[Rfam]
Shown here is a 52-nucleotide RNA sequence, a member of the family "Guanidine-II riboswitch aptamer (mini-ykkC)". From the family's description: Simpler in structure and has fewer highly conserved nucleotide positions than the ykkC-yxkD leader. The base pairs follow the family's consensus structure, which is taken from published work.
RNA sequence: ACGCGAGGACGACCUCGCCGCUCCAUCCGAGUGACCAUCCGGGACGGCCCGC
Numbered sequence: 001a002c003g004c005g006a007g008g009a010c011g012a013c014c015u016c017g018c019c020g021c022u023c024c025a026u027c028c029g030a031g032u033g034a035c036c037a038u039c040c041g042g043g044a045c046g047g048c049c050c051g052c
Stems, first nucleotide, its partner, number of pairs: 003018006040051004